[Rfam]
RNA sequence: UGUCUCCUCCAACUCUUCCAAGAAUUGGAUUUAGCCCGCUUUCACCAGCGGGCUUUUUUUU
Numbered sequence: 001u002g003u004c005u006c007c008u009c010c011a012a013c014u015c016u017u018c019c020a021a022g023a024a025u026u027g028g029a030u031u032u033a034g035c036c037c038g039c040u041u042u043c044a045c046c047a048g049c050g051g052g053c054u055u056u057u058u059u060u061u
Base pairs, nucleotide, nucleotide: 008029009028010027011026012025014023015022033054034053035052036051037050038049039048040047
Dot-bracket structure: .......(((((.((......)).)))))...((((((((......)))))))).......

A member of the RNA family "Betaproteobacteria toxic small RNA" from Janthinobacterium agaricidamnosum, 61 nucleotides long. A search with the family's covariance model found it, with a score of 59 bits. Overexpression in amino aid rich medium attenuates growth, suggesting role in repressing amino acid intake and metabolism. The family's consensus secondary structure was predicted with WAR.